This 154-nucleotide RNA sequence from Medicago truncatula belongs to the Rfam family "MIR2619 microRNA precursor family". The organism belongs to Medicago, within Eukaryota. The match comes from Rfam's covariance-model search (146 bits).

[Rfam]
RNA sequence: AAACAGCCCCUAUGUAUUGGAUCUUUGGCAGUUUUGGCCCCCAAGGCCACUUUUGACUAAGUCUUCGCUUGCGGGUGCCGCGUCAGCGAAGACUAAGUCAAAAGUGGCUUUGGGGGCCAAAACUGUCAAAGAUCCAAUACAUAGGGGGCUGUUU
Number, nucleotide and partner (000 for none) at each position: 001a154002a153003a000004c151005a150006g149007c148008c147009c000010c000011u143012a142013u141014g140015u139016a138017u137018u136019g135020g134021a133022u132023c131024u130025u129026u128027g127028g126029c125030a124031g123032u122033u121034u120035u119036g118037g117038c116039c115040c114041c113042c112043a111044a110045g000046g000047c000048c000049a000050c000051u000052u000053u000054u000055g000056a000057c000058u000059a000060a000061g000062u000063c000064u000065u000066c000067g000068c000069u000070u000071g083072c082073g000074g079075g000076u000077g000078c000079c074080g000081c000082g072083u071084c000085a000086g000087c000088g000089a000090a000091g000092a000093c000094u000095a000096a000097g000098u000099c000100a000101a000102a000103a000104g000105u000106g000107g000108c000109u000110u044111u043112g042113g041114g040115g039116g038117c037118c036119a035120a034121a033122a032123c031124u030125g029126u028127c027128a026129a025130a024131g023132a022133u021134c020135c019136a018137a017138u016139a015140c014141a013142u012143a011144g000145g000146g000147g008148g007149c006150u005151g004152u000153u002154u001